RNA sequence: AUUGCGUUAGGGAUUGGAGCGAUAUCCUUUUUUUAAGCGAAGCGUAAAAAAAGAUAAAGCAAAAAGCCCGACCGAGC
Number, nucleotide and partner (000 for none) at each position: 001a000002u000003u000004g000005c000006g000007u000008u000009a000010g069011g068012g067013a000014u065015u064016g000017g000018a000019g060020c059021g000022a000023u000024a055025u054026c053027c000028u000029u000030u050031u049032u048033u047034u046035a045036a000037g043038c000039g000040a000041a000042g000043c037044g000045u035046a034047a033048a032049a031050a030051a000052a000053g026054a025055u024056a000057a000058a000059g020060c019061a000062a000063a000064a015065a014066g000067c012068c011069c010070g000071a000072c000073c000074g000075a000076g000077c000

A member of the RNA family "Flavo-1 RNA" from Paenimyroides tangerinum, 77 nucleotides long.
Pairs were carried over by alignment from the consensus structure, which is taken from published work.
By type it is a small RNA.
The match comes from Rfam's covariance-model search (51 bits).